This 102-nucleotide RNA sequence from Kroppenstedtia pulmonis belongs to the Rfam family "Purine riboswitch aptamer". The match comes from Rfam's covariance-model search (86 bits). Riboswitches are metabolite binding domains within certain messenger RNAs that serve as precision sensors for their corresponding targets. The source organism's lineage runs through Bacteria, Bacillati, Bacillota, Bacilli and Kroppenstedtia. Its family is annotated with purine nucleobase biosynthetic process in the Gene Ontology.
RNA sequence: UUAUACAAUAUAGGACUCACUCAUAUAAUCGCAGGAAUAGGGCCUGCAAGUUUCUACCGGUUUGCCGUAAACAAAUCGACUAUGGGUGGCAAGUGAUUGAGA
Numbered sequence: 001u002u003a004u005a006c007a008a009u010a011u012a013g014g015a016c017u018c019a020c021u022c023a024u025a026u027a028a029u030c031g032c033a034g035g036a037a038u039a040g041g042g043c044c045u046g047c048a049a050g051u052u053u054c055u056a057c058c059g060g061u062u063u064g065c066c067g068u069a070a071a072c073a074a075a076u077c078g079a080c081u082a083u084g085g086g087u088g089g090c091a092a093g094u095g096a097u098u099g100a101g102a
Base pairs, nucleotide, nucleotide: 018088019087020086021085022084023083024082025081029049031047032046033045034044035043058078059077060076061075062074063073064072